Description: A member of the RNA family "mir-393 microRNA precursor family" from Brassica rapa, 147 nucleotides long. Lineage of the source: Eukaryota > Spermatophyta > Gunneridae > malvids > Brassica. A search with the family's covariance model found it, with a score of 76 bits. Gene Ontology terms of the family: miRNA-mediated post-transcriptional gene silencing and RISC complex.
RNA sequence: AGAGAAAGGAUCCAAAGGGAUCGCAUUGAUCCUAAUCAAGCUGAGUUAUUCCCGAAUAAUUAUUUUAAACUUUUCUCAAUGGAAAGAUAGAAAAAAAAAAGAUUUGCUUCGUUUUCCGGAUCAUGCGAUCUCUUCGGAUUCAUCCUU
Numbered sequence: 001a002g003a004g005a006a007a008g009g010a011u012c013c014a015a016a017g018g019g020a021u022c023g024c025a026u027u028g029a030u031c032c033u034a035a036u037c038a039a040g041c042u043g044a045g046u047u048a049u050u051c052c053c054g055a056a057u058a059a060u061u062a063u064u065u066u067a068a069a070c071u072u073u074u075c076u077c078a079a080u081g082g083a084a085a086g087a088u089a090g091a092a093a094a095a096a097a098a099a100a101g102a103u104u105u106g107c108u109u110c111g112u113u114u115u116c117c118g119g120a121u122c123a124u125g126c127g128a129u130c131u132c133u134u135c136g137g138a139u140u141c142a143u144c145c146u147u
Stems, first nucleotide, its partner, number of pairs: 002147003006143001008141006015134007023126004028122005

The pairing is the family consensus, mapped onto this sequence. A reference for the family is Kruszka et al. (2012), "Role of microRNAs and other sRNAs of plants in their changing environments", J Plant Physiol.